[Rfam]
RNA sequence: UCCUCCUGGUCGGAUCGGACCUCCACUGUUUCUUGCUGCGGUAAUAUUUCUCAGAAAAAAUAUCACCGGGUGAAAAACAGGGAAGGUCCGAUUCCAGCCG
Dot-bracket structure: ...............(((((((.(.((((((.(((((.(.((.(((..............))).)).)))))).)))))).).)))))))..........
RNA: mir-36 microRNA precursor family
Organism: Caenorhabditis latens